[Rfam]
RNA sequence: CAUGUCAACGGUAGCGGCAAUAAACGAAUUUGUUGACAUAGUUAAUGACA
Number, nucleotide and partner (000 for none) at each position: 001c041002a039003u038004g037005u036006c035007a034008a033009c032010g031011g030012u000013a000014g000015c000016g000017g000018c000019a000020a000021u000022a000023a000024a000025c000026g000027a000028a000029u000030u011031u010032g009033u008034u007035g006036a005037c004038a003039u002040a000041g001042u000043u000044a000045a000046u000047g000048a000049c000050a000
Description: This 50-nucleotide RNA sequence from Callosobruchus maculatus belongs to the Rfam family "Bacillus-plasmid RNA". The match comes from Rfam's covariance-model search (31 bits). It is annotated as a small RNA.